RNA sequence: GGGGCUCAAUGGGGCACUGGUGUCCCCCGUGGUCUUCAAAACCAUCUGUGACCUGCGUGCCAGGUCAGCUGGGUUCGAUUCCCAGGGGGUCCC
Numbered sequence: 001g002g003g004g005c006u007c008a009a010u011g012g013g014g015c016a017c018u019g020g021u022g023u024c025c026c027c028c029g030u031g032g033u034c035u036u037c038a039a040a041a042c043c044a045u046c047u048g049u050g051a052c053c054u055g056c057g058u059g060c061c062a063g064g065u066c067a068g069c070u071g072g073g074u075u076c077g078a079u080u081c082c083c084a085g086g087g088g089g090u091c092c093c
Stems, first nucleotide, its partner, number of pairs: 001093007012027003016023002029045005049067005070084004